[Rfam]
Rfam assigns this 120-nucleotide sequence from Zhengella mangrovi to the family "Rhizobiales sRNA Atu_C8".
For this family Rfam cites "Deep sequencing uncovers numerous small RNAs on all four replicons of the plant pathogen Agrobacterium tumefaciens" (Wilms et al., RNA Biol, 2012).
RNA sequence: GAACAUGACCGACAUCAUCCUCGUAGUACGUGAGCGCAUGGGCAGAAGGGCUUAACCCUUCGGCGACAGCCACCCAUGCGCGAAAACAGGCCCUCCCAAGGGCCUUUUUUAUUGCCCGGA
Numbered sequence: 001g002a003a004c005a006u007g008a009c010c011g012a013c014a015u016c017a018u019c020c021u022c023g024u025a026g027u028a029c030g031u032g033a034g035c036g037c038a039u040g041g042g043c044a045g046a047a048g049g050g051c052u053u054a055a056c057c058c059u060u061c062g063g064c065g066a067c068a069g070c071c072a073c074c075c076a077u078g079c080g081c082g083a084a085a086a087c088a089g090g091c092c093c094u095c096c097c098a099a100g101g102g103c104c105u106u107u108u109u110u111a112u113u114g115c116c117c118g119g120a
Base pairs, nucleotide, nucleotide: 009026030115031114032113034081035080036079037078038077039076040075041074042073045061046060047059048058049057050056063070064069086106088105089104090103091102092101093100094099
It is annotated as a small RNA.